About this RNA:
Rfam assigns this 591-nucleotide part of an RNA from Trichoplax sp. H2 to the family "Eukaryotic small subunit ribosomal RNA". The family's consensus secondary structure is taken from published work. Lineage of the source: Eukaryota > Opisthokonta > Placozoa > Trichoplacea > Trichoplax. A search with the family's covariance model found it, with a score of 1814 bits. On this family, see Yusupov et al., Science 2001: "Crystal structure of the ribosome at 5.5 A resolution".
RNA sequence: AGUCAUAUGCUUGUCUCAAAGAUUAAGCCAUGCAUGUCUAAGUAUAAGCACUUGUACUGUGAAACUGCGAAUGGCUCAUUAAAUCAGUUAUCGUUUAUUUGAUCGUACAUUACUACAUGGAUAACCGUGGUAAUUCUAGAGCUAAUACAUGCGAAAAGUCCCGACUUUGCGGAAGGGAUGUAUUUAUUAGAUCAAAAACCAAUGCGGGCUUGCCCGGUGUUUGGUGAUUCAUAAUAACUUAUCGAAUCGCAUGGCCUUGUGCCGGCGAUGCUUCAUUCAAGUUUCUGCCCUAUCAACUUUCGAUGGUAAGGUAUUGGCUUACCAUGGUUACAACGGGUAACGGAGAAUUAGGGUUCGAUUCCGGAGAGGGAGCCUGAGAAACGGCUACCACAUCCAAGGAAGGCAGCAGGCGCGCAAAUUACCCAAUCCCGACACGGGGAGGUAGUGACAAGAAAUAACGAUACGGGGCCAUCUGGCUUCGUAAUCGGAAUGAGUACAAUUUAAAUCCUUUAACGAGGAUCCAUUGGAGGGCAAGUCUGGUGCCAGCAGCCGCGGUAAUUCCAGCUCCAAUAGCGUAUAUUAAAGUUGUUG
Dot-bracket structure: (((.(((((((..(((...((.....(((.(((..((...(((....((.........))...)))))......(((.......(((..((..((....(((.............((((.....(..(((.....)))..)......))))......(((((..((....))..)))))....((((((........((((....(((....)))......))))......)))))).........((((.((((.....))))))))....)))...))))..))).(((....(((....((((((((.......)))))))))))......)))...((((((((....))))...))))))).((.(((..........))).)).(.((....)).)...)))))).).....(.(((...(((((...))))).)))).)....))).....((((((((((((....))))))))).)))......(((.((.........))).)).........((((((.......((((.....((....)).......)))))))))).))))))))))..........